STnc490 Hfq binding RNA: a 115-nucleotide RNA sequence from Peptacetobacter hominis. Rfam classes the family as a small RNA. Rfam 15.1 lists 285 matches to the family in 122 species. The organism belongs to Peptacetobacter, within Bacteria.

RNA sequence: AACCCCCAGUUAUACUGGGGGUCCAGUAAAGCUUUUAGUUUUGAGUCUUUAACAAAAGAAACUCCUUUUGAUAAUAUAUAAUUGCGGUCAGCCAACUGCAAAAAAUUAUCAAAAA
Number, nucleotide and partner (000 for none) at each position: 001a000002a022003c021004c020005c019006c018007c017008a016009g015010u014011u000012a000013u000014a010015c009016u008017g007018g006019g005020g004021g003022u002023c000024c000025a000026g000027u000028a042029a041030a040031g039032c038033u037034u000035u000036u000037a033038g032039u031040u030041u029042u028043g000044a000045g000046u000047c000048u000049u000050u000051a000052a000053c000054a000055a000056a000057a000058g000059a000060a000061a000062c000063u000064c000065c000066u000067u000068u115069u111070g110071a109072u108073a000074a000075u000076a000077u104078a000079u103080a000081a000082u101083u100084g099085c098086g097087g096088u095089c000090a000091g000092c000093c000094a000095a088096c087097u086098g085099c084100a083101a082102a000103a079104a077105a000106u000107u000108a072109u071110c070111a069112a000113a000114a000115a068